RNA: DUF805 RNA
Organism: Kordia antarctica
RNA sequence: UUAAUGUGGAACAAAAACCACUUUAAAAAAUAGGCGGAAUCCGAAAAGCUUUAUGAGUAGGAAAAAU
Numbered sequence: 001u002u003a004a005u006g007u008g009g010a011a012c013a014a015a016a017a018c019c020a021c022u023u024u025a026a027a028a029a030a031u032a033g034g035c036g037g038a039a040u041c042c043g044a045a046a047a048g049c050u051u052u053a054u055g056a057g058u059a060g061g062a063a064a065a066a067u
Base pairs, nucleotide, nucleotide: 006021007020008019009018033050034049035048040061041060